[Rfam]
RNA sequence: GCAACACUUAUAGCGCCAGGGCUAUAUCUUACGGUUAACAAGAUAUAGUUGACGAGGAGGAGGUUUAUCGAGUGUUCGGCGGAUGCCUCCCGGUUGCUUCACUUCAACCGCAUGUUCAAACGCUAAACCAAAGAGGCGACUCUUUGACCAAAACGUUUGAAUCAAGUGAAA
Dot-bracket structure: ...................((((((((.(...........).))))))))........(((((....((((....))))......)))))((((((........))))))....(((((((.......(((((((....)))))))........)))))))..........
This 171-nucleotide RNA from Halobacillus yeomjeoni belongs to the Rfam family "glmS glucosamine-6-phosphate activated ribozyme aptamer". Rfam's curators write: This entry contains a glucosamine-6-phosphate activated ribozyme that is found in the mRNA for GlmS. GlmS is an enzyme that uses fructose-6-phosphate and glutamine to generate glucosamine-6-phosphate. It is annotated as a riboswitch. The family's consensus secondary structure is taken from published work. Lineage of the source: Bacteria > Bacillota > Bacilli > Caryophanales > Halobacillus.